This 83-nucleotide RNA sequence from Python bivittatus belongs to the Rfam family "mir-130 microRNA precursor family". A reference for the family is Houbaviy et al. (2003), "Embryonic stem cell-specific MicroRNAs", Dev Cell.
RNA sequence: AGCAGUCUGCUACUCUUUCCUUGUUGCGCUACUGUUCAGCUUCGCCUCUAGCAGUGCAAUAAUGAAAGGGCAUCAGCCCCUCC
Numbered sequence: 001a002g003c004a005g006u007c008u009g010c011u012a013c014u015c016u017u018u019c020c021u022u023g024u025u026g027c028g029c030u031a032c033u034g035u036u037c038a039g040c041u042u043c044g045c046c047u048c049u050a051g052c053a054g055u056g057c058a059a060u061a062a063u064g065a066a067a068g069g070g071c072a073u074c075a076g077c078c079c080c081u082c083c
Stems, first nucleotide, its partner, number of pairs: 002082001005078001007076003013070007022061009
The family has 9 seed sequences and 2,580 matches in Rfam 15.1.